Small nucleolar RNA Z107/R87: a 109-nucleotide RNA from Cicer arietinum. Taxonomically the source falls in Cicer (Eukaryota, Streptophytina, Tracheophyta, Pentapetalae). It is annotated as a C/D-box small nucleolar RNA. The base pairs follow the family's consensus structure, which was predicted with RNAfold. It scores 106 bits against the family's covariance model. Rfam links the family to the GO terms RNA processing and nucleolus. The literature on the family includes a 2001 paper in J Mol Biol by Barneche et al., "Identification of 66 box C/D snoRNAs in Arabidopsis thaliana: extensive gene duplications generated multiple isoforms predicting new ribosomal RNA 2'-O-methylation sites".
RNA sequence: GAUCGCGAUGAUGACUCCAUAAAAUUCAAGCUCAACAGACCGGAAUGCAGGGCUUUCUCUCUAUCGAGAAAUGCUUUGCGUGUCGAUAACCCCGCUGAACUGAGCGAUC
Dot-bracket structure: ((((((.................................................................................................))))))